[Rfam]
RNA sequence: UCCUUCAGUGUUGAAACAAUCUCCACUGAACCAGCUCCACACCAAGUACACUGGAGAUUGUUUCAAUAUGGCAAGAA
Numbered sequence: 001u002c003c004u005u006c007a008g009u010g011u012u013g014a015a016a017c018a019a020u021c022u023c024c025a026c027u028g029a030a031c032c033a034g035c036u037c038c039a040c041a042c043c044a045a046g047u048a049c050a051c052u053g054g055a056g057a058u059u060g061u062u063u064c065a066a067u068a069u070g071g072c073a074a075g076a077a
Base pairs, nucleotide, nucleotide: 003075004074005073006071008069009068010067011066012065013064014063015062016061017060018059019058021056022055023054024053025052027050028049030047031046
Rfam assigns this 77-nucleotide RNA sequence from Hipposideros armiger to the family "mir-653 microRNA precursor family". Lineage of the source: Eukaryota > Chordata > Eutheria > Rhinolophoidea > Hipposideros. Its family is annotated with miRNA-mediated post-transcriptional gene silencing and RISC complex in the Gene Ontology.